[Rfam]
RNA sequence: UAAUAUUCAUAGAAAAUAAAAGAAGCCUUGCUGGAACAAGACUUCCUUUGCAGAGCCGCUAGGCGGUGGACGCAGUGUUGUUACUUAGUA
Numbered sequence: 001u002a003a004u005a006u007u008c009a010u011a012g013a014a015a016a017u018a019a020a021a022g023a024a025g026c027c028u029u030g031c032u033g034g035a036a037c038a039a040g041a042c043u044u045c046c047u048u049u050g051c052a053g054a055g056c057c058g059c060u061a062g063g064c065g066g067u068g069g070a071c072g073c074a075g076u077g078u079u080g081u082u083a084c085u086u087a088g089u090a
Stems, first nucleotide, its partner, number of pairs: 027040004055067005

Shown here is a 90-nucleotide RNA sequence from Ligilactobacillus ubinensis, a member of the family "RNA anti-toxin A". The literature on the family includes a 2010 paper in Nucleic Acids Res by Fozo et al., "Abundance of type I toxin-antitoxin systems in bacteria: searches for new candidates and discovery of novel families". The match comes from Rfam's covariance-model search (52 bits). Taxonomically the source falls in Ligilactobacillus (Bacteria, Bacillati, Bacillota, Lactobacillales). The family's RNA type in Rfam is antitoxin RNA. The family's consensus secondary structure was predicted with RNAalifold.